[Rfam]
RNA sequence: AGACAGGGCUGUGUGCCGGCCCUCGUCUGCACGGACGAUCCGUCUGAUGUACUUCCCCGACGUCAGGCAGACCCGUGCAGGUGAGGCCCUGUAUGCAGCCCCUCCCAGCA
Numbered sequence: 001a002g003a004c005a006g007g008g009c010u011g012u013g014u015g016c017c018g019g020c021c022c023u024c025g026u027c028u029g030c031a032c033g034g035a036c037g038a039u040c041c042g043u044c045u046g047a048u049g050u051a052c053u054u055c056c057c058c059g060a061c062g063u064c065a066g067g068c069a070g071a072c073c074c075g076u077g078c079a080g081g082u083g084a085g086g087c088c089c090u091g092u093a094u095g096c097a098g099c100c101c102c103u104c105c106c107a108g109c110a
Base pairs, nucleotide, nucleotide: 010097011096012095013094014093015092016091018089019088021086022085023084024083025082026081027080028079029078030077031076032075033074034073039071040070042068043067044066045065046064047063048062049061050060
RNA: mraW RNA